The record is a 130-nucleotide sequence, which matches "Group II catalytic intron D1-D4-7" in Rfam. Pairs were carried over by alignment from the consensus structure. Gene Ontology term of the family: Group II intron splicing. From the family's description: Group II introns are found in rRNA, tRNA and mRNA of organelles in fungi, plants and protists, and also in mRNA in bacteria. The literature on the family includes a 2003 paper in Crit Rev Biochem Mol Biol by Lehmann and Schmidt, "Group II introns: structure and catalytic versatility of large natural ribozymes".
[Rfam]
RNA sequence: CCACCGAUGUCACUCGGUGAAUCUAGGAGUCUUAUAAAGAGCGACUCUGACAACGUAACGAAGCGCCGCAAGGUGCGGGAUAUAAAUCGUGAGAAGCAUAUCCCUCUGGCAGCCACAGCUGGAAUAGUGC
Numbered sequence: 001c002c003a004c005c006g007a008u009g010u011c012a013c014u015c016g017g018u019g020a021a022u023c024u025a026g027g028a029g030u031c032u033u034a035u036a037a038a039g040a041g042c043g044a045c046u047c048u049g050a051c052a053a054c055g056u057a058a059c060g061a062a063g064c065g066c067c068g069c070a071a072g073g074u075g076c077g078g079g080a081u082a083u084a085a086a087u088c089g090u091g092a093g094a095a096g097c098a099u100a101u102c103c104c105u106c107u108g109g110c111a112g113c114c115a116c117a118g119c120u121g122g123a124a125u126a127g128u129g130c
Stems, first nucleotide, its partner, number of pairs: 002019006027047005032038002063076005078103004087094002105123006